[Rfam]
RNA: TPP riboswitch aptamer (THI element)
RNA sequence: CCUCGCUUGACGGAGCGCGAGUAAUGCCUCGCUGAGAUCAUGUGAUUCCUUUUAUCAUUAUCAGGAAUUGAGCAUGAGUACCGUUGAACCUGAUCAGGUUAAUACCUGCGUAGGAAUCAAGCCAGCUAAAAAC
Numbered sequence: 001c002c003u004c005g006c007u008u009g010a011c012g013g014a015g016c017g018c019g020a021g022u023a024a025u026g027c028c029u030c031g032c033u034g035a036g037a038u039c040a041u042g043u044g045a046u047u048c049c050u051u052u053u054a055u056c057a058u059u060a061u062c063a064g065g066a067a068u069u070g071a072g073c074a075u076g077a078g079u080a081c082c083g084u085u086g087a088a089c090c091u092g093a094u095c096a097g098g099u100u101a102a103u104a105c106c107u108g109c110g111u112a113g114g115a116a117u118c119a120a121g122c123c124a125g126c127u128a129a130a131a132a133c
Stems, first nucleotide, its partner, number of pairs: 006121005011083003017032005039076005089114004095108004